[Rfam]
RNA sequence: AUUGAAAAAGCCAAACCUGUCGCGAGGCAGGGACGGAAAGCCACGGGCCUCUUGUGCGCAUCGCCAACGGCGGCGCAGCGGGAGGCAGCCGGGUUGCCGAAG
Numbered sequence: 001a002u003u004g005a006a007a008a009a010g011c012c013a014a015a016c017c018u019g020u021c022g023c024g025a026g027g028c029a030g031g032g033a034c035g036g037a038a039a040g041c042c043a044c045g046g047g048c049c050u051c052u053u054g055u056g057c058g059c060a061u062c063g064c065c066a067a068c069g070g071c072g073g074c075g076c077a078g079c080g081g082g083a084g085g086c087a088g089c090c091g092g093g094u095u096g097c098c099g100a101a102g
Base pairs, nucleotide, nucleotide: 003099004098011036012035016031017030018029019028020027021026034088039095040094041093042092044091045090046089047086048085049084050083051082052081053080054079055078